Rfam assigns this 442-nucleotide sequence from Granulicella arctica to the family "Bacterial RNase P class A". A search with the family's covariance model found it, with a score of 274 bits. The family's RNA type in Rfam is ribozyme.
[Rfam]
RNA sequence: GCAGGCGGCUGGAUGAUCGCUGCCGUCUUCGCCGCAAGGUGUUGGACGGGGGAGGAAAGUCCGAACUCCGCAGGGCAGUGUGCCGGAUAACGUCCGGGACGGAUGGUUCAAGCCAUCCGGACGGCCAGUGCAACAGAGAGCGAACCGCCUUUUGCCGCGCAAGCGACAGAAGGUAAGGGUGAAAAGGUGCGGUAAGAGCGCACCGCGCACGGCGUAAGCAGUGCGGCAUGGUAAACCCCACACGGAGCAAGACCAAAUAGGCAGGGAACUCGUCCGCUCCUCUUCAGGCGGACAGUGCGUAUCGGCCCGAUGCGCCCAGGCGAAGAGACUUGUGAAAGCAAGAGCCGAAACCUGCGGGUAGGUUGCUGGAGCGCCGCAGUAAUGCGUCGCCUAGAGGAAUGAUCGUCUAAAACAAAAUUCGGCUUACGGGCCGUCUGCAAAC
Numbered sequence: 001g002c003a004g005g006c007g008g009c010u011g012g013a014u015g016a017u018c019g020c021u022g023c024c025g026u027c028u029u030c031g032c033c034g035c036a037a038g039g040u041g042u043u044g045g046a047c048g049g050g051g052g053a054g055g056a057a058a059g060u061c062c063g064a065a066c067u068c069c070g071c072a073g074g075g076c077a078g079u080g081u082g083c084c085g086g087a088u089a090a091c092g093u094c095c096g097g098g099a100c101g102g103a104u105g106g107u108u109c110a111a112g113c114c115a116u117c118c119g120g121a122c123g124g125c126c127a128g129u130g131c132a133a134c135a136g137a138g139a140g141c142g143a144a145c146c147g148c149c150u151u152u153u154g155c156c157g158c159g160c161a162a163g164c165g166a167c168a169g170a171a172g173g174u175a176a177g178g179g180u181g182a183a184a185a186g187g188u189g190c191g192g193u194a195a196g197a198g199c200g201c202a203c204c205g206c207g208c209a210c211g212g213c214g215u216a217a218g219c220a221g222u223g224c225g226g227c228a229u230g231g232u233a234a235a236c237c238c239c240a241c242a243c244g245g246a247g248c249a250a251g252a253c254c255a256a257a258u259a260g261g262c263a264g265g266g267a268a269c270u271c272g273u274c275c276g277c278u279c280c281u282c283u284u285c286a287g288g289c290g291g292a293c294a295g296u297g298c299g300u301a302u303c304g305g306c307c308c309g310a311u312g313c314g315c316c317c318a319g320g321c322g323a324a325g326a327g328a329c330u331u332g333u334g335a336a337a338g339c340a341a342g343a344g345c346c347g348a349a350a351c352c353u354g355c356g357g358g359u360a361g362g363u364u365g366c367u368g369g370a371g372c373g374c375c376g377c378a379g380u381a382a383u384g385c386g387u388c389g390c391c392u393a394g395a396g397g398a399a400u401g402a403u404c405g406u407c408u409a410a411a412a413c414a415a416a417a418u419u420c421g422g423c424u425u426a427c428g429g430g431c432c433g434u435c436u437g438c439a440a441a442c
Stems, first nucleotide, its partner, number of pairs: 001438010011427001012407007020052002023049006057425003061422005066247004078243005083097005098122001100119008123238002128236002130232002145178002147174008186204006205227001206225005212219002251364004261355005289344001371390003375386004
Dot-bracket structure: ((((((((((((((((((.((.((((((...............)))))).))....[[[.[[[[[((((........((((((((((.....)))))(.((((((((....))))))))..)((...((((.............((((((((((............))))))))..)).......((((((.......))))))((((((.((....)).))))).)...))..)))))))))))))...((((......(((((.......................(......................................................)......))))).....))))......(((.((((....)))).)))..........)))))))..........]]]]]]]].).))))))))))....